RNA: Makes More Granules Regulator RNA (mmgR)
RNA sequence: CGGUACUGCCCUUCCAGGGCGUUUCCUCCCUAGACUUCGGGCCGCUCGCAAGGGCGGCCUUUUUGUAUCUGGCA
Numbered sequence: 001c002g003g004u005a006c007u008g009c010c011c012u013u014c015c016a017g018g019g020c021g022u023u024u025c026c027u028c029c030c031u032a033g034a035c036u037u038c039g040g041g042c043c044g045c046u047c048g049c050a051a052g053g054g055c056g057g058c059c060u061u062u063u064u065g066u067a068u069c070u071g072g073c074a
Stems, first nucleotide, its partner, number of pairs: 008020004040059008